Bacteroidales small SRP: a 107-nucleotide RNA from Prevotella sp. CAG:1320. Clan: SRP clan. The literature on the family includes a 2020 paper in Nat Commun by Ryan et al., "A high-resolution transcriptome map identifies small RNA regulation of metabolism in the gut microbe Bacteroides thetaiotaomicron". The match comes from Rfam's covariance-model search (116 bits). The base pairs follow the family's consensus structure, which is taken from published work. Rfam links the family to the GO terms signal recognition particle, plasma membrane targeting and SRP-dependent cotranslational protein targeting to membrane, signal sequence recognition.
[Rfam]
RNA sequence: GCGACAUGGGCAAGUCUCCUACGGCCAGCUCCCUCGGAAUCCCCCAGGGUGGGAACGCAGCAAGGGUACUUGGUUGUAGCGGCGCGAUAGGAAUCGCUUGCCCACCU
Numbered sequence: 001g002c003g004a005c006a007u008g009g010g011c012a013a014g015u016c017u018c019c020u021a022c023g024g025c026c027a028g029c030u031c032c033c034u035c036g037g038a039a040u041c042c043c044c045c046a047g048g049g050u051g052g053g054a055a056c057g058c059a060g061c062a063a064g065g066g067u068a069c070u071u072g073g074u075u076g077u078a079g080c081g082g083c084g085c086g087a088u089a090g091g092a093a094u095c096g097c098u099u100g101c102c103c104a105c106c107u
Base pairs, nucleotide, nucleotide: 008103009102010101011100012099013098014097015096017092018091019090020089021088022086023085024083025082